[Rfam]
RNA sequence: CCGAAUACAAGGGGGUGCUUGCAGCGUUCUGGAUAUGGAACGUACCGCAGGCUGAGAUGAUACCCAUAUUACCUGAUACGGAUAAUGCCGGCGAAGGGAAUUGUAAAACAUGGUAUA
Numbered sequence: 001c002c003g004a005a006u007a008c009a010a011g012g013g014g015g016u017g018c019u020u021g022c023a024g025c026g027u028u029c030u031g032g033a034u035a036u037g038g039a040a041c042g043u044a045c046c047g048c049a050g051g052c053u054g055a056g057a058u059g060a061u062a063c064c065c066a067u068a069u070u071a072c073c074u075g076a077u078a079c080g081g082a083u084a085a086u087g088c089c090g091g092c093g094a095a096g097g098g099a100a101u102u103g104u105a106a107a108a109c110a111u112g113g114u115a116u117a
Base pairs, nucleotide, nucleotide: 006105007104008103009102010101012065013064014063016060017052018051019050020049021048072097073096074095079090080089081088
This 117-nucleotide RNA from Parabacteroides gordonii belongs to the Rfam family "TPP riboswitch aptamer (THI element)". The family's consensus secondary structure is taken from published work.